[Rfam]
This 73-nucleotide sequence belongs to the Rfam family "mir-10 microRNA precursor family". A reference for the family is Lee and Ambros (2001), "An extensive class of small RNAs in Caenorhabditis elegans", Science.
RNA sequence: UGGCACCCACCCGUAGAACCGACCUUGCGGGGCCUUCGCCGCACACAAGCUCGUGUCUGUGGGUCCGUGUCGG
Numbered sequence: 001u002g003g004c005a006c007c008c009a010c011c012c013g014u015a016g017a018a019c020c021g022a023c024c025u026u027g028c029g030g031g032g033c034c035u036u037c038g039c040c041g042c043a044c045a046c047a048a049g050c051u052c053g054u055g056u057c058u059g060u061g062g063g064u065c066c067g068u069g070u071c072g073g
Stems, first nucleotide, its partner, number of pairs: 002071005010063003015058003020053003024049004029044001